Shown here is a 147-nucleotide RNA from Odocoileus virginianus, a member of the family "Small nucleolar RNA SNORA79".
The family's RNA type in Rfam is H/ACA-box small nucleolar RNA.
Rfam 15.1 lists 944 matches to the family in 375 species.
Gene Ontology terms of the family: nucleolus and RNA processing.
The organism belongs to Odocoileus virginianus, within Eukaryota.
Rfam's curators write: ACA65 (SNORA79) is a member of the H/ACA class of snoRNAs that guide the sites of modification of uridines to pseudouridines. This snoRNA was identified by computational screening and its expression in mouse experimentally verified by Northern blot and primer extension analysis.
RNA sequence: UGAUGGCUGUUCUCUCCUUGCUUGAAGACUUAGGCAGGAGGAUUUUAGUCCGCCAUAUAUCUAAGCUGACUUGUCUUCUCUUAGGACACCAUGGGGAUGGGUUGGUGGUCCAUUAGUGUCUUCUGAUUUUUACGGAGUCAAUUGGAA
Number, nucleotide and partner (000 for none) at each position: 001u055002g054003a000004u052005g051006g050007c000008u048009g000010u000011u000012c000013u042014c041015u040016c000017c038018u000019u036020g035021c034022u033023u000024g000025a000026a000027g000028a000029c000030u000031u000032a000033g022034g021035c020036a019037g000038g017039a000040g015041g014042a013043u000044u000045u000046u000047a000048g008049u000050c006051c005052g004053c000054c002055a001056u000057a000058u000059a000060u000061c000062u000063a000064a000065g000066c000067u000068g139069a138070c137071u136072u135073g000074u000075c000076u000077u000078c000079u000080c000081u126082u125083a124084g123085g122086a119087c118088a117089c116090c000091a000092u000093g000094g000095g111096g110097a109098u108099g000100g000101g000102u000103u000104g000105g000106u000107g000108g098109u097110c096111c095112a000113u000114u000115a000116g089117u088118g087119u086120c000121u000122u085123c084124u083125g082126a081127u000128u000129u000130u000131u000132a000133c000134g000135g072136a071137g070138u069139c068140a000141a000142u000143u000144g000145g000146a000147a000